[Rfam]
RNA sequence: GUGUGAAGUAGAGGUUGCAGUGUCGAAGAGUAUCUUUUUGGAGCGGACAGCGAAGAAGAAAAGAGAAAGGCGACAUUGCCGAAAAAUGAAAAGGGUCGCUUUUUCAUUUUGGGGUUGCAUAAAAUAUGUGCAACACUGUCAUCCGAAAGAUGUUGGGCUACUUAAAAU
Numbered sequence: 001g002u003g004u005g006a007a008g009u010a011g012a013g014g015u016u017g018c019a020g021u022g023u024c025g026a027a028g029a030g031u032a033u034c035u036u037u038u039u040g041g042a043g044c045g046g047a048c049a050g051c052g053a054a055g056a057a058g059a060a061a062a063g064a065g066a067a068a069g070g071c072g073a074c075a076u077u078g079c080c081g082a083a084a085a086a087u088g089a090a091a092a093g094g095g096u097c098g099c100u101u102u103u104u105c106a107u108u109u110u111g112g113g114g115u116u117g118c119a120u121a122a123a124a125u126a127u128g129u130g131c132a133a134c135a136c137u138g139u140c141a142u143c144c145g146a147a148a149g150a151u152g153u154u155g156g157g158c159u160a161c162u163u164a165a166a167a168u
Base pairs, nucleotide, nucleotide: 006163007162008161009160010159011158017079018078019077020076021075022074023073024072025071033064034063035062036061037060038059039058083110084109085108086107087106088105089104090103091102092101093100094099111137112136114134115133116132117131118130119129120128121127140152141151142150143149
Source information:
The record is a 168-nucleotide RNA from Savagea serpentis, which matches "Lysine riboswitch aptamer" in Rfam. The family's consensus secondary structure is taken from published work. Riboswitches are metabolite binding domains within certain messenger RNAs that serve as precision sensors for their corresponding targets. The source organism's lineage runs through Bacteria, Bacillati, Bacilli, Caryophanaceae and Savagea.